[Rfam]
RNA: mir-221 microRNA precursor family
RNA sequence: CUGCCCGCUGACCCAGCACACAUUGUAGAAUCCUGUGCCCUACAUGCAACAGCUACAUUGUCUGCUGGGUUAGUGUGCAGUUUU
Numbered sequence: 001c002u003g004c005c006c007g008c009u010g011a012c013c014c015a016g017c018a019c020a021c022a023u024u025g026u027a028g029a030a031u032c033c034u035g036u037g038c039c040c041u042a043c044a045u046g047c048a049a050c051a052g053c054u055a056c057a058u059u060g061u062c063u064g065c066u067g068g069g070u071u072a073g074u075g076u077g078c079a080g081u082u083u084u
Stems, first nucleotide, its partner, number of pairs: 013068006020061003024057005033052004
Dot-bracket structure: ............((((((.(((.(((((....((((............))))))))).))).))))))................